[Rfam]
RNA: SAH (S-adenosyl-L-homocysteine) riboswitch aptamer
Organism: uncultured Candidatus Thioglobus sp.
RNA sequence: CUCGCCGAGGAGCGUUGCAUUGGGAAUCCCCAUCAGGCUCGGCAAUCAAAAACGACGCUCAUUUAUU
Numbered sequence: 001c002u003c004g005c006c007g008a009g010g011a012g013c014g015u016u017g018c019a020u021u022g023g024g025a026a027u028c029c030c031c032a033u034c035a036g037g038c039u040c041g042g043c044a045a046u047c048a049a050a051a052a053c054g055a056c057g058c059u060c061a062u063u064u065a066u067u
Base pairs, nucleotide, nucleotide: 002045004043005042006041007040008039021032022031023030024029